[Rfam]
RNA sequence: UCUUCCCCUUUGACUUAGAUCCAUCCCCUUCUGCAUGACGCUUCUGCAAAAAUUUCGUAUGUGCCAUGUAAACAUUUUUAUAAUUAAUUUUUCUUUAUUUUUAGGUGUACCAUUGUUACCAAAACCUAUUAUGAGGGAGAGGGGUUUUAGUUGGUAGGUCCUCCUGUUAGGGAAUCCAACACUACCCAGUCGUACGGUCGGCUGGGUGUCUUUCGAAGAUUUCCCCUCUCCCACGAAA
Dot-bracket structure: ...............................(((...........))).....(((((............................................................................(((((.(((......(((((....((((......))))...))))).(.(((((..............))))))..............)))..)))))))))).

This 238-nucleotide sequence from Agrilus planipennis belongs to the Rfam family "R2 RNA element". On this family, see Ruschak et al., RNA 2004: "Secondary structure models of the 3' untranslated regions of diverse R2 RNAs". About the family: This family represents the 3' UTR region of the R2 retrotransposable element. This family is known to interact with the R2-encoded reverse transcriptase in a reaction known as target primed reverse transcription (TPRT).